[Rfam]
Nucleotides: 073
Stems, first nucleotide, its partner, number of pairs: 001072007010025003029041003048065003052062002
Number, partner (000 for none) and nucleotide at each position: 001072c002071u003070u004069u005068c006067c007066g008000u009000g010025g011024c012023u013000g014000a015000a016000g017000g018000g019000u020000u021000a022000g023012a024011g025010c026000g027000u028000c029041u030040g031039c032000c033000u034000u035000a036000a037000g038000a039031g040030c041029a042000u043000u044000a045000g046000g047000u048065g049064c050063a051000a052062g053061g054000u055000u056000c057000g058000a059000a060000u061053c062052c063050u064049g065048c066007c067006g068005g069004a070003g071002a072001g073000u
Overview: The family of this 73-nucleotide RNA sequence from Nesidiocoris tenuis is "tRNA". About the family: Transfer RNA (tRNA) molecules are approximately 80 nucleotides in length. Their secondary structure includes four short double-helical elements and three loops (D, anti-codon, and T loops). Further hydrogen bonds mediate the characteristic L-shaped molecular structure. tRNAs have two regions of fundamental functional importance: the anti-codon, which is responsible for specific mRNA codon recognition, and the 3' end, to which the tRNAs corresponding amino acid is attached (by aminoacyl-tRNA synthetases). tRNAs cope with the degeneracy of the genetic code in two manners: having more than one tRNA (with a specific anti-codon) for a particular amino acid; and 'wobble' base-pairing, i.e. permitting non-standard base-pairing at the 3rd anti-codon position. The family's consensus secondary structure is taken from published work. Taxonomically the source falls in Nesidiocoris (Eukaryota, Arthropoda, Neoptera, Cimicoidea).